[Rfam]
RNA sequence: GAGUGACCUCACGGGCGCUCUGAGCACAGAGCUGAGAUCGGACUGACGCUGUCCGGGCACCGUCUGAACCUGUCCGGGUCAUGCCGGCGAAGGAAGAAGGAGCUCUUUCAUG
Numbered sequence: 001g002a003g004u005g006a007c008c009u010c011a012c013g014g015g016c017g018c019u020c021u022g023a024g025c026a027c028a029g030a031g032c033u034g035a036g037a038u039c040g041g042a043c044u045g046a047c048g049c050u051g052u053c054c055g056g057g058c059a060c061c062g063u064c065u066g067a068a069c070c071u072g073u074c075c076g077g078g079u080c081a082u083g084c085c086g087g088c089g090a091a092g093g094a095a096g097a098a099g100g101a102g103c104u105c106u107u108u109c110a111u112g
Stems, first nucleotide, its partner, number of pairs: 007099001009097002011063004016056001017032005039055005069093003074087004
A member of the RNA family "TPP riboswitch aptamer (THI element)" from Nesterenkonia sedimenti, 112 nucleotides long. A reference for the family is Rodionov et al. (2002), "Comparative genomics of thiamin biosynthesis in procaryotes. New genes and regulatory mechanisms", J Biol Chem. The match comes from Rfam's covariance-model search (64 bits). The base pairs follow the family's consensus structure, which is taken from published work. Rfam links the family to the GO term thiamine pyrophosphate binding.